[Rfam]
RNA sequence: AGCUUUUUGAAUCUGUGUAGAGAUUUCGUCAGAUACCAACUCAUUAGGAUUGACCAGACUUCCAAGGUAAGUGAAGUU
Numbered sequence: 001a002g003c004u005u006u007u008u009g010a011a012u013c014u015g016u017g018u019a020g021a022g023a024u025u026u027c028g029u030c031a032g033a034u035a036c037c038a039a040c041u042c043a044u045u046a047g048g049a050u051u052g053a054c055c056a057g058a059c060u061u062c063c064a065a066g067g068u069a070a071g072u073g074a075a076g077u078u
Base pairs, nucleotide, nucleotide: 002077003076004075005074006073008071011068012067013066016064017063020061021060022059024058025057026056028054029053030052
Rfam assigns this 78-nucleotide RNA from Schistosoma haematobium to the family "mir-3492 microRNA precursor family".
A search with the family's covariance model found it, with a score of 51 bits.
Rfam 15.1 lists 21,496 matches to the family in 13 species.
Lineage of the source: Eukaryota > Spiralia > Strigeidida > Schistosomatidae > Schistosoma.
Gene Ontology terms of the family: RISC complex and miRNA-mediated post-transcriptional gene silencing.